[Rfam]
About this RNA: The record is a 152-nucleotide sequence from Nitratireductor sp. StC3, which matches "FMN riboswitch aptamer (RFN element)" in Rfam. The base pairs follow the family's consensus structure, which is taken from published work. The source organism's lineage runs through Bacteria, Pseudomonadati, Hyphomicrobiales, Phyllobacteriaceae and Nitratireductor.
RNA sequence: CGACGUUCUCAGGGCGGGGUGAAAGUCCCCACCGGCGGUAAGGGGAUCUCCCCAAGCCCGCGAGCGCCGGGGCGGCGACAGGCCGGUCCGGGUCAGCAGAUUCGGUGCGAAUCCGAAGCCGACGGUUACAGUCCGGAUGGAAGAGAACGGGU
Numbered sequence: 001c002g003a004c005g006u007u008c009u010c011a012g013g014g015c016g017g018g019g020u021g022a023a024a025g026u027c028c029c030c031a032c033c034g035g036c037g038g039u040a041a042g043g044g045g046a047u048c049u050c051c052c053c054a055a056g057c058c059c060g061c062g063a064g065c066g067c068c069g070g071g072g073c074g075g076c077g078a079c080a081g082g083c084c085g086g087u088c089c090g091g092g093u094c095a096g097c098a099g100a101u102u103c104g105g106u107g108c109g110a111a112u113c114c115g116a117a118g119c120c121g122a123c124g125g126u127u128a129c130a131g132u133c134c135g136g137a138u139g140g141a142a143g144a145g146a147a148c149g150g151g152u
Base pairs, nucleotide, nucleotide: 004149005148006147007146008145009144010143017029018028019027031132032131033121034120035061036060037059038058056119057118064097065096101117102116103115104114105113123135124134125133